[Rfam]
RNA sequence: CCAGCUCUGAAGACAGCAGCACAGAAGUAAGGGUGGCAUGAUGUGGUAUUACCACCCUUACUUCUGUGCUGCUGCUGGGAGGG
Numbered sequence: 001c002c003a004g005c006u007c008u009g010a011a012g013a014c015a016g017c018a019g020c021a022c023a024g025a026a027g028u029a030a031g032g033g034u035g036g037c038a039u040g041a042u043g044u045g046g047u048a049u050u051a052c053c054a055c056c057c058u059u060a061c062u063u064c065u066g067u068g069c070u071g072c073u074g075c076u077g078g079g080a081g082g083g
Base pairs, nucleotide, nucleotide: 001083002082005079006078007077010076015073016072017071018070019069020068021067022066024063026062027061028060029059030058031057032056033055
Background: Rfam assigns this 83-nucleotide RNA sequence from Chelonoidis abingdonii to the family "mir-16 microRNA precursor family". Its family is annotated with miRNA-mediated post-transcriptional gene silencing and RISC complex in the Gene Ontology. A reference for the family is Jin et al. (2020), "Structural Basis for pri-miRNA Recognition by Drosha", Mol Cell. Clan: mir-15 clan. The match comes from Rfam's covariance-model search (42 bits). Pairs were carried over by alignment from the consensus structure, which was predicted with PFOLD.